[Rfam]
RNA sequence: CUCUGGGCACGCAAAGGGCUCAGGGCGGAAAGAG
Numbered sequence: 001c002u003c004u005g006g007g008c009a010c011g012c013a014a015a016g017g018g019c020u021c022a023g024g025g026c027g028g029a030a031a032g033a034g
Stems, first nucleotide, its partner, number of pairs: 001025008
The record is a 34-nucleotide RNA sequence from Paenibacillus alvei, which matches "L31-Firmicutes ribosomal protein leader" in Rfam.
For this family Rfam cites "Discovery of 20 novel ribosomal leader candidates in bacteria and archaea" (Eckert and Weinberg, BMC Microbiol, 2020).
By type it is a cis-regulatory leader.